The family of this 83-nucleotide RNA from Atractosteus spatula is "mir-7 microRNA precursor family". This family represents the microRNA (miRNA) precursor mir-7. The organism belongs to Atractosteus, within Eukaryota. The family has 132 seed sequences and 2,589 matches in Rfam 15.1.

RNA sequence: UCAGUGCAGUGUGGAAGACUAGUGAUUUUGUUGUUCUAAGCAUUAAAACUGACAACAAGUCACAGUCUACCUCAGGGCAUUGU
Numbered sequence: 001u002c003a004g005u006g007c008a009g010u011g012u013g014g015a016a017g018a019c020u021a022g023u024g025a026u027u028u029u030g031u032u033g034u035u036c037u038a039a040g041c042a043u044u045a046a047a048a049c050u051g052a053c054a055a056c057a058a059g060u061c062a063c064a065g066u067c068u069a070c071c072u073c074a075g076g077g078c079a080u081u082g083u
Stems, first nucleotide, its partner, number of pairs: 002082004007077001010074002013071002016068005022063007030056006